[Rfam]
RNA sequence: GGGCGAGGACGGCCUCGCUCCAUUCUCAAAAUCCGCAGGGACGGCCCUG
Dot-bracket structure: ((((((((....))))))))...............(((((....)))))
Guanidine-II riboswitch aptamer (mini-ykkC): a 49-nucleotide RNA sequence from Pseudorhodoplanes sinuspersici. The match comes from Rfam's covariance-model search (45 bits). On this family, see Sherlock et al., Biochemistry 2017: "Biochemical Validation of a Second Guanidine Riboswitch Class in Bacteria". Simpler in structure and has fewer highly conserved nucleotide positions than the ykkC-yxkD leader. NCBI's taxonomy places the organism under Bacteria, Pseudomonadati, Pseudomonadota, Alphaproteobacteria, Pseudorhodoplanes. The base pairs follow the family's consensus structure, which is taken from published work.